[Rfam]
RNA sequence: AACGUUCAUUCCUCUUCGGAUUGAUUGCAUCUACCGGUUGCUGUUAGUCCUGCAAGGAACGGAAGUAGGGAAAAAUAGUUUAGCUAUUUGACCGAAGGAACGCGCC
Numbered sequence: 001a002a003c004g005u006u007c008a009u010u011c012c013u014c015u016u017c018g019g020a021u022u023g024a025u026u027g028c029a030u031c032u033a034c035c036g037g038u039u040g041c042u043g044u045u046a047g048u049c050c051u052g053c054a055a056g057g058a059a060c061g062g063a064a065g066u067a068g069g070g071a072a073a074a075a076u077a078g079u080u081u082a083g084c085u086a087u088u089u090g091a092c093c094g095a096a097g098g099a100a101c102g103c104g105c106c
Stems, first nucleotide, its partner, number of pairs: 003102005009059005062103001068093002